[Rfam]
A member of the RNA family "xerDC RNA", 137 nucleotides long.
RNA sequence: GAUCCGCGGCCGGACGGAUCAUUUGACACACGCAGUUGGCGACACCUUGUCUCCAACUGCACCCGAGUUCAGCGGUGGUGUCAGCGGCGGCUCGUCAGAGCAGAGGUCUUUACCUCUAUGCCGCAUUUGUACUGACC
Numbered sequence: 001g002a003u004c005c006g007c008g009g010c011c012g013g014a015c016g017g018a019u020c021a022u023u024u025g026a027c028a029c030a031c032g033c034a035g036u037u038g039g040c041g042a043c044a045c046c047u048u049g050u051c052u053c054c055a056a057c058u059g060c061a062c063c064c065g066a067g068u069u070c071a072g073c074g075g076u077g078g079u080g081u082c083a084g085c086g087g088c089g090g091c092u093c094g095u096c097a098g099a100g101c102a103g104a105g106g107u108c109u110u111u112a113c114c115u116c117u118a119u120g121c122c123g124c125a126u127u128u129g130u131a132c133u134g135a136c137c
Stems, first nucleotide, its partner, number of pairs: 001020006024083006032060008063075003084124005090101004103116001105114003
Rfam classes the family as a cis-regulatory element.